This 195-nucleotide sequence from Chinchilla lanigera belongs to the Rfam family "U2 spliceosomal RNA".
U2 is a small nuclear RNA (snRNA) component of the spliceosome (involved in pre-mRNA splicing). Complementary binding between U2 snRNA (in an area lying towards the 5' end but 3' to hairpin I) and the branchpoint sequence (BPS) of the intron results the bulging out of an unpaired adenosine, on the BPS, which initiates a nucleophilic attack at the intronic 5' splice site, thus starting the first of two transesterification reactions that mediate splicing.
Lineage of the source: Eukaryota > Bilateria > Gnathostomata > Tetrapoda > Chinchilla.
Rfam classes the family as a spliceosomal small nuclear RNA.

RNA sequence: AUUGCUUCUUGGCCUUUUGCCUAAGAUGAAGGGCAGUAUUUAAGUUCUUAUCAACUUAAUGUCUGAUACGACCUCUAGCUGAGGACAAUAUAUACUAAGUGGACUUUCGGAGCAGGGAGAUGUAGUAAGAGCUUGCUCUGUCCACUCCAUGCAUCAACCUGGUAUUAUAGUAUCUCCAGGGACAGUGCACCCCAG
Numbered sequence: 001a002u003u004g005c006u007u008c009u010u011g012g013c014c015u016u017u018u019g020c021c022u023a024a025g026a027u028g029a030a031g032g033g034c035a036g037u038a039u040u041u042a043a044g045u046u047c048u049u050a051u052c053a054a055c056u057u058a059a060u061g062u063c064u065g066a067u068a069c070g071a072c073c074u075c076u077a078g079c080u081g082a083g084g085a086c087a088a089u090a091u092a093u094a095c096u097a098a099g100u101g102g103a104c105u106u107u108c109g110g111a112g113c114a115g116g117g118a119g120a121u122g123u124a125g126u127a128a129g130a131g132c133u134u135g136c137u138c139u140g141u142c143c144a145c146u147c148c149a150u151g152c153a154u155c156a157a158c159c160u161g162g163u164a165u166u167a168u169a170g171u172a173u174c175u176c177c178a179g180g181g182a183c184a185g186u187g188c189a190c191c192c193c194a195g
Stems, first nucleotide, its partner, number of pairs: 007026003011022002014019001049068005070086001072084004116148004122142001128139004151188004158180005